[Rfam]
The record is a 64-nucleotide RNA from Myotis brandtii, which matches "mir-9242 microRNA precursor family" in Rfam. The source organism's lineage runs through Eukaryota, Euteleostomi, Sarcopterygii, Amniota and Myotis.
RNA sequence: GGCCUCCCUCUGUGGGGCUAUCGAUCACGGGGCUCUGUGAUCGAUCACCCAGCAGAGAGAGGCC
Dot-bracket structure: ((((((.((((((.(((..(((((((((((....)))))))))))..))).)))))).))))))